[Rfam]
RNA sequence: UACGAGCACGCCUGGAUCGUUGCUCAGCCUGUCAAUUCCAGAUGAGCAAAGUUUCAGGUGUGUUUGUAG
Numbered sequence: 001u002a003c004g005a006g007c008a009c010g011c012c013u014g015g016a017u018c019g020u021u022g023c024u025c026a027g028c029c030u031g032u033c034a035a036u037u038c039c040a041g042a043u044g045a046g047c048a049a050a051g052u053u054u055c056a057g058g059u060g061u062g063u064u065u066g067u068a069g
Stems, first nucleotide, its partner, number of pairs: 002067006009060007018051001020049002023046004029041002

The family of this 69-nucleotide RNA from Nesidiocoris tenuis is "mir-87 microRNA precursor family". Rfam links the family to the GO terms RISC complex and miRNA-mediated post-transcriptional gene silencing.